[Rfam]
RNA sequence: GGGAACAAUCCUUGAAGCUCAGGAGGGAUAGCGCCUAGGUUUAUUGCAACCAGCAAGAGACCGGCCGGCUCUUGAUGGUUCAUCGAUCUGUUCGUCCGAAGCGCUAUCUAUCCUGAGCUCCACGGUUUGUUCUU
Numbered sequence: 001g002g003g004a005a006c007a008a009u010c011c012u013u014g015a016a017g018c019u020c021a022g023g024a025g026g027g028a029u030a031g032c033g034c035c036u037a038g039g040u041u042u043a044u045u046g047c048a049a050c051c052a053g054c055a056a057g058a059g060a061c062c063g064g065c066c067g068g069c070u071c072u073u074g075a076u077g078g079u080u081c082a083u084c085g086a087u088c089u090g091u092u093c094g095u096c097c098g099a100a101g102c103g104c105u106a107u108c109u110a111u112c113c114u115g116a117g118c119u120c121c122a123c124g125g126u127u128u129g130u131u132c133u134u
Stems, first nucleotide, its partner, number of pairs: 010125001016119009026109009

Background: Shown here is a 134-nucleotide RNA sequence from Triticum urartu, a member of the family "MIR390 microRNA precursor family". Rfam 15.1 lists 649 matches to the family in 206 species. The base pairs follow the family's consensus structure, which was predicted with WAR. Gene Ontology terms of the family: miRNA-mediated post-transcriptional gene silencing and RISC complex. The source organism's lineage runs through Eukaryota, Viridiplantae, Magnoliopsida, Poaceae and Triticum. The literature on the family includes a 2005 paper in Plant Physiol by Xie et al., "Expression of Arabidopsis MIRNA genes".